[Rfam]
RNA sequence: GGCUGGUCUGAGAGCCCUGGUCUUUACACCGAAUUGAUCACAACCAGUUAGAGAUUUCUUUGUUUUUCUUCCUCCACUCCCACUACUUCACUUGACUAGCCUUAA
Numbered sequence: 001g002g003c004u005g006g007u008c009u010g011a012g013a014g015c016c017c018u019g020g021u022c023u024u025u026a027c028a029c030c031g032a033a034u035u036g037a038u039c040a041c042a043a044c045c046a047g048u049u050a051g052a053g054a055u056u057u058c059u060u061u062g063u064u065u066u067u068c069u070u071c072c073u074c075c076a077c078u079c080c081c082a083c084u085a086c087u088u089c090a091c092u093u094g095a096c097u098a099g100c101c102u103u104a105a
Stems, first nucleotide, its partner, number of pairs: 001101008010093002014089001018082003036067002040063002